[Rfam]
A member of the RNA family "Small nucleolar RNA U109" from Rattus norvegicus, 135 nucleotides long.
Rfam links the family to the GO terms RNA processing and nucleolus.
The family's RNA type in Rfam is H/ACA-box small nucleolar RNA.
Nucleotides: 135
Stems, first nucleotide, its partner, number of pairs: 003060006016042003020038004073128004085115002089111001090109007
Number, partner (000 for none) and nucleotide at each position: 001000u002000u003060g004059c005058a006057u007056g008055u009000g010000g011000a012000a013000a014000u015000a016042c017041c018040u019000u020038c021037u022036c023035c024000c025000c026000a027000u028000u029000c030000u031000c032000u033000u034000u035023g036022g037021a038020g039000u040018a041017g042016g043000a044000a045000u046000g047000u048000a049000u050000c051000c052000a053000g054000a055008a056007c057006a058005u059004g060003c061000u062000a063000c064000a065000c066000u067000a068000a069000a070000a071000g072000a073128g074127g075126a076125g077000u078000u079000c080000u081000c082000a083000g084000g085115g086114c087000u088000g089111c090109c091108a092107g093106c094105c095104u096103u097000c098000u099000a100000g101000u102000a103096g104095a105094g106093g107092u108091u109090g110000g111089g112000u113000g114086g115085u116000a117000g118000u119000a120000u121000a122000u123000u124000u125076c126075u127074c128073c129000u130000a131000c132000a133000g134000a135000a

Source information:
NCBI's taxonomy places the organism under Eukaryota, Opisthokonta, Eumetazoa, Theria, Rattus.